[Rfam]
RNA sequence: AUCUUCUCAAAUUUUGAUUGUUGCUCAGAAAGCCGUAAUGUUUAACUCCGGCGCUCGGGCAACAAUCAACUAAUGAUGGAGGU
Numbered sequence: 001a002u003c004u005u006c007u008c009a010a011a012u013u014u015u016g017a018u019u020g021u022u023g024c025u026c027a028g029a030a031a032g033c034c035g036u037a038a039u040g041u042u043u044a045a046c047u048c049c050g051g052c053g054c055u056c057g058g059g060c061a062a063c064a065a066u067c068a069a070c071u072a073a074u075g076a077u078g079g080a081g082g083u
Base pairs, nucleotide, nucleotide: 001083002082003081004080005079006078014069015068016067017066018065020063021062022061023060024059025058026057028056029055032052033051034050
About this RNA:
Rfam assigns this 83-nucleotide RNA from Lottia gigantea to the family "mir-315 microRNA precursor family". Its family is annotated with RISC complex and miRNA-mediated post-transcriptional gene silencing in the Gene Ontology. On this family, see Aravin et al., Dev Cell 2003: "The small RNA profile during Drosophila melanogaster development".